[Rfam]
Shown here is a 178-nucleotide sequence from Limnospira maxima, a member of the family "Antisense RNA which regulates isiA expression". Taxonomically the source falls in Limnospira maxima (Bacteria, Oscillatoriales, Sirenicapillariaceae, Limnospira). On this family, see Duhring et al., Proc Natl Acad Sci U S A 2006: "An internal antisense RNA regulates expression of the photosynthesis gene isiA".
RNA sequence: GAUAGCCAUAGAUAGUUGCGGGGUUAAGGGUAGGUUCUGUUACCAGACGGACGGUUUGAGUGGCUGCAUCAUACAGUCCGCCAAAAUACAUAGCUUUGGCGACUAGCAAUAAGGCUCCCAUACCUAAAAACAGUAAGUGAUGCCCUAAAAUUAAGCCCAACUGUUUUGGGUCUUCCCA
Number, nucleotide and partner (000 for none) at each position: 001g000002a000003u000004a000005g000006c000007c000008a000009u000010a000011g000012a000013u000014a000015g000016u000017u000018g000019c000020g000021g000022g000023g000024u000025u000026a000027a000028g000029g000030g000031u000032a000033g000034g000035u000036u000037c000038u000039g000040u000041u000042a000043c000044c000045a000046g000047a000048c000049g000050g000051a000052c000053g000054g000055u000056u000057u000058g000059a000060g000061u000062g000063g000064c000065u000066g000067c000068a000069u000070c000071a000072u000073a000074c000075a000076g000077u000078c000079c000080g000081c000082c000083a000084a000085a000086a000087u000088a000089c000090a000091u000092a000093g000094c000095u000096u000097u000098g000099g000100c000101g000102a000103c000104u000105a000106g000107c000108a000109a000110u000111a000112a000113g000114g000115c000116u000117c000118c000119c000120a000121u000122a000123c000124c000125u000126a000127a000128a000129a000130a000131c000132a000133g000134u000135a000136a000137g174138u000139g172140a171141u170142g000143c000144c169145c168146u000147a166148a165149a000150a000151u000152u000153a000154a000155g000156c000157c000158c000159a000160a000161c000162u000163g000164u000165u148166u147167u000168g145169g144170g141171u140172c139173u000174u137175c000176c000177c000178a000